Rfam assigns this 79-nucleotide RNA sequence from filamentous cyanobacterium CCP2 to the family "Cyano-1 RNA". Rfam 15.1 lists 283 matches to the family in 194 species.

RNA sequence: GAAUGUGUGAGGAUGAACAGAAACUAGUCCAAAAGCCCUCGGAGUCGAAACACGGAAAGACGUCUGGGGGCUUUUGUCA
Numbered sequence: 001g002a003a004u005g006u007g008u009g010a011g012g013a014u015g016a017a018c019a020g021a022a023a024c025u026a027g028u029c030c031a032a033a034a035g036c037c038c039u040c041g042g043a044g045u046c047g048a049a050a051c052a053c054g055g056a057a058a059g060a061c062g063u064c065u066g067g068g069g070g071c072u073u074u075u076g077u078c079a
Base pairs, nucleotide, nucleotide: 015075032074033073034072035071036070039067040066041065042064043063044061045060046059
It is annotated as a small RNA.